[Rfam]
The family of this 80-nucleotide RNA sequence from Oceanihabitans sediminis is "Flavo-1 RNA".
Nucleotides: 080
Stems, first nucleotide, its partner, number of pairs: 009072003013068002018063002023058003029053008
Number, partner (000 for none) and nucleotide at each position: 001000u002000u003000g004000u005000g006000u007000u008000a009072g010071c011070g012000a013068u014067u015000g016000c017000a018063a019062u020000g021000g022000c023058a024057u025056c026000c027000u028000u029053u030052u031051u032050u033049u034048g035047c036046u037000u038000c039000g040000a041000u042000a043000u044000a045000u046036g047035g048034c049033a050032a051031a052030a053029a054000a055000a056025g057024a058023u059000a060000u061000a062019a063018u064000g065000g066000a067014a068013a069000g070011c071010g072009c073000g074000a075000c076000c077000u078000c079000c080000u

The match comes from Rfam's covariance-model search (62 bits).